The family of this 54-nucleotide RNA from Clupea harengus is "UnaL2 LINE 3' element". The base pairs follow the family's consensus structure, which is taken from published work. The literature on the family includes a 2004 paper in RNA by Baba et al., "Solution structure of an RNA stem-loop derived from the 3' conserved region of eel LINE UnaL2".

RNA sequence: AAGUCGCACAUAUGUAAGUCGCUUUGGAUAAAAGCGUUGGCUAAAUGACUAAAU
Numbered sequence: 001a002a003g004u005c006g007c008a009c010a011u012a013u014g015u016a017a018g019u020c021g022c023u024u025u026g027g028a029u030a031a032a033a034g035c036g037u038u039g040g041c042u043a044a045a046u047g048a049c050u051a052a053a054u
Stems, first nucleotide, its partner, number of pairs: 013043001014041002020036006
The family's RNA type in Rfam is cis-regulatory element. About the family: The eel long interspersed element (LINE) UnaL2 and its partner short interspersed element (SINE) share a conserved 3' tail containing a stem-loop that is critical for their retrotransposition. Presumably, the first step of retrotransposition is the recognition of their 3' tails by UnaL2-encoded reverse transcriptase.